[Rfam]
RNA sequence: UUCGCUGAGGGGCGCUGCGACCGUUGCUAUGAACGGCCAGGCUCGGUGGAAUGACUUUGUAACGGCGCCCGGUUAAC
Numbered sequence: 001u002u003c004g005c006u007g008a009g010g011g012g013c014g015c016u017g018c019g020a021c022c023g024u025u026g027c028u029a030u031g032a033a034c035g036g037c038c039a040g041g042c043u044c045g046g047u048g049g050a051a052u053g054a055c056u057u058u059g060u061a062a063c064g065g066c067g068c069c070c071g072g073u074u075a076a077c
Base pairs, nucleotide, nucleotide: 002049003048004047005046006045007044008043021036022035023034024033025032

Rfam assigns this 77-nucleotide RNA from Dyella tabacisoli to the family "SAH (S-adenosyl-L-homocysteine) riboswitch aptamer". On this family, see Wang et al., Mol Cell 2008: "Riboswitches that sense S-adenosylhomocysteine and activate genes involved in coenzyme recycling". The match comes from Rfam's covariance-model search (57 bits). The base pairs follow the family's consensus structure, which is taken from published work. Its family is annotated with S-adenosylhomocysteine metabolic process and regulation of gene expression in the Gene Ontology.